[Rfam]
RNA: RNase MRP
Nucleotides: 498
Base pairs, nucleotide, nucleotide: 002498003497004496005495006494007493008491009490010489011488014440015439016438017437018436019435023096024095025094026093027092028091029090039068040067041066042065043064044063045062101483102482103481105480106479107478108477130141131140132139133138218233219232220231221230222229223228271407272406273405274404275403276402277400278399279398284394286392442467443466444465445464447462
Number, partner (000 for none) and nucleotide at each position: 001000c002498c003497c004496u005495c006494g007493c008491u009490c010489a011488a012000c013000a014440a015439a016438u017437c018436g019435c020000u021000a022000u023096u024095c025094g026093a027092a028091g029090c030000u031000u032000c033000c034000a035000a036000a037000c038000g039068g040067a041066g042065a043064c044063g045062c046000u047000c048000u049000g050000c051000c052000c053000u054000c055000g056000g057000g058000c059000a060000c061000u062045g063044c064043g065042u066041c067040u068039c069000g070000c071000a072000a073000a074000c075000a076000c077000a078000c079000a080000c081000a082000a083000a084000c085000c086000u087000c088000u089000u090029g091028c092027u093026u094025u095024g096023g097000g098000u099000g100000a101483a102482a103481g104000u105480c106479c107478c108477c109000g110000g111000a112000c113000g114000u115000c116000u117000c118000c119000a120000u121000c122000u123000u124000g125000g126000a127000g128000c129000u130141u131140g132139c133138g134000g135000a136000a137000a138133c139132g140131c141130g142000c143000c144000g145000c146000c147000a148000u149000a150000g151000a152000a153000g154000c155000a156000c157000u158000g159000c160000g161000g162000c163000u164000g165000a166000c167000c168000u169000c170000u171000u172000g173000c174000g175000c176000c177000u178000u179000g180000g181000c182000c183000c184000a185000u186000c187000c188000g189000c190000c191000g192000u193000g194000c195000u196000c197000u198000g199000c200000c201000c202000g203000c204000c205000c206000u207000g208000c209000u210000g211000a212000g213000u214000c215000g216000c217000u218233g219232c220231a221230u222229g223228c224000g225000u226000a227000u228223g229222c230221g231220u232219g233218c234000u235000g236000c237000u238000u239000u240000g241000u242000c243000a244000c245000c246000a247000a248000c249000a250000a251000g252000g253000c254000c255000c256000a257000a258000a259000g260000u261000u262000c263000c264000u265000g266000c267000a268000u269000c270000u271407c272406u273405c274404g275403g276402c277400c278399c279398c280000u281000u282000u283000g284394g285000a286392c287000g288000a289000a290000g291000a292000u293000a294000u295000g296000a297000g298000u299000c300000c301000g302000u303000a304000u305000c306000g307000g308000g309000a310000u311000g312000a313000u314000g315000c316000a317000a318000g319000c320000u321000a322000g323000g324000g325000g326000c327000c328000u329000u330000u331000u332000u333000g334000u335000c336000g337000a338000g339000g340000a341000a342000g343000c344000u345000g346000g347000u348000a349000c350000a351000a352000g353000c354000u355000g356000u357000g358000g359000a360000a361000g362000g363000a364000u365000a366000g367000g368000c369000a370000g371000c372000c373000g374000u375000g376000u377000g378000g379000c380000g381000g382000c383000a384000c385000g386000g387000c388000u389000u390000g391000u392286g393000g394284c395000a396000u397000c398279g399278g400277g401000c402276g403275c404274u405273g406272a407271g408000g409000a410000g411000c412000u413000u414000u415000u416000u417000g418000u419000c420000g421000a422000a423000a424000u425000u426000g427000a428000u429000a430000g431000a432000u433000a434000u435019g436018c437017g438016a439015u440014u441000g442467c443466u444465u445464u446000g447462g448000g449000a450000c451000c452000u453000u454000u455000u456000u457000g458000g459000u460000g461000u462447c463000a464445a465444a466443a467442g468000u469000u470000a471000c472000u473000c474000g475000a476000u477108g478107g479106g480105g481103c482102u483101u484000a485000u486000u487000c488011u489010u490009g491008a492000g493007g494006c495005g496004a497003g498002g